[Rfam]
Background:
The record is a 533-nucleotide part of an RNA from Rotaria sordida, which matches "Eukaryotic large subunit ribosomal RNA" in Rfam. A search with the family's covariance model found it, with a score of 2842 bits. The source organism's lineage runs through Eukaryota, Metazoa, Protostomia, Eurotatoria and Rotaria.
RNA sequence: UAGAACAAGGUAGCACAAGGGAAGUCGGCAAAAUCGAUCGGCAACUUCGGGAUAACGAUUGGCUCUAAGUGCUAGGGUGUUCGGGCUUGAUGAUAAAGCAGUAGACUUGCUACUGGAGCUGAGCUUUCGGAUACAGCAAUGUGUCUGAUCGUUCGGACUAGUGGCUUGUCUUGCUGUGGAAUCGUUUUGCUACGGUAUGCGGUUCGCUUGCGGAUCGUAUUACUUCGGACAUCGUUUAAUAGCAAACUUAGAACUCGCUGCGUCUAGGGGAAUCCGACUGUCUAAUUAAAACAGAGCUUUGCGAUUGGCCGGAAAACUUGGUGUUGACGCAAAGUGAUUUCUGCCCAGUGCUCUGAAUGUUAACGUGAAGAAAUUCAAAUAAGCGCGGGUAAACGGCGGGAGUAACUAUGACUCUCUUCUGGUAGCCAAAUGCCUCGUCAUCUAAUUAGUGACGCGCAUGAAUGGAUUAACGAGAUUCCCACUGUCCCUGUCUACUAUCUAGCGAAACCACAGCCAAGGGAACGGGCUUGGAC
Numbered sequence: 001u002a003g004a005a006c007a008a009g010g011u012a013g014c015a016c017a018a019g020g021g022a023a024g025u026c027g028g029c030a031a032a033a034u035c036g037a038u039c040g041g042c043a044a045c046u047u048c049g050g051g052a053u054a055a056c057g058a059u060u061g062g063c064u065c066u067a068a069g070u071g072c073u074a075g076g077g078u079g080u081u082c083g084g085g086c087u088u089g090a091u092g093a094u095a096a097a098g099c100a101g102u103a104g105a106c107u108u109g110c111u112a113c114u115g116g117a118g119c120u121g122a123g124c125u126u127u128c129g130g131a132u133a134c135a136g137c138a139a140u141g142u143g144u145c146u147g148a149u150c151g152u153u154c155g156g157a158c159u160a161g162u163g164g165c166u167u168g169u170c171u172u173g174c175u176g177u178g179g180a181a182u183c184g185u186u187u188u189g190c191u192a193c194g195g196u197a198u199g200c201g202g203u204u205c206g207c208u209u210g211c212g213g214a215u216c217g218u219a220u221u222a223c224u225u226c227g228g229a230c231a232u233c234g235u236u237u238a239a240u241a242g243c244a245a246a247c248u249u250a251g252a253a254c255u256c257g258c259u260g261c262g263u264c265u266a267g268g269g270g271a272a273u274c275c276g277a278c279u280g281u282c283u284a285a286u287u288a289a290a291a292c293a294g295a296g297c298u299u300u301g302c303g304a305u306u307g308g309c310c311g312g313a314a315a316a317c318u319u320g321g322u323g324u325u326g327a328c329g330c331a332a333a334g335u336g337a338u339u340u341c342u343g344c345c346c347a348g349u350g351c352u353c354u355g356a357a358u359g360u361u362a363a364c365g366u367g368a369a370g371a372a373a374u375u376c377a378a379a380u381a382a383g384c385g386c387g388g389g390u391a392a393a394c395g396g397c398g399g400g401a402g403u404a405a406c407u408a409u410g411a412c413u414c415u416c417u418u419c420u421g422g423u424a425g426c427c428a429a430a431u432g433c434c435u436c437g438u439c440a441u442c443u444a445a446u447u448a449g450u451g452a453c454g455c456g457c458a459u460g461a462a463u464g465g466a467u468u469a470a471c472g473a474g475a476u477u478c479c480c481a482c483u484g485u486c487c488c489u490g491u492c493u494a495c496u497a498u499c500u501a502g503c504g505a506a507a508c509c510a511c512a513g514c515c516a517a518g519g520g521a522a523c524g525g526g527c528u529u530g531g532a533c
Stems, first nucleotide, its partner, number of pairs: 001501004009496005015491003019487003036060005045050001061255002064252006070244005076233009085190002089186004098177004103171004109165008119156006127148009256260001268480007275472002279293003296335008308322004339466003343397003348394002350390004355386001358385003366377004398416006417421001437453005514531005